[Rfam]
The record is a 105-nucleotide sequence from Prunus persica, which matches "MIR6274 microRNA precursor family" in Rfam. The base pairs follow the family's consensus structure, which was predicted with RNAalifold.
RNA sequence: UGAUAACACUUUUUGCAAUUUCUGACCAAUGAUGCAAUGACACGUGAGAUAACUUUUCCAUGUGUCAUUGUGUUAUUGGCCGAAAAUAGCAAAAUAGUAUUAUCC
Numbered sequence: 001u002g003a004u005a006a007c008a009c010u011u012u013u014u015g016c017a018a019u020u021u022c023u024g025a026c027c028a029a030u031g032a033u034g035c036a037a038u039g040a041c042a043c044g045u046g047a048g049a050u051a052a053c054u055u056u057u058c059c060a061u062g063u064g065u066c067a068u069u070g071u072g073u074u075a076u077u078g079g080c081c082g083a084a085a086a087u088a089g090c091a092a093a094a095u096a097g098u099a100u101u102a103u104c105c
Stems, first nucleotide, its partner, number of pairs: 002104004011094006018087002021084001023082002026079021048057002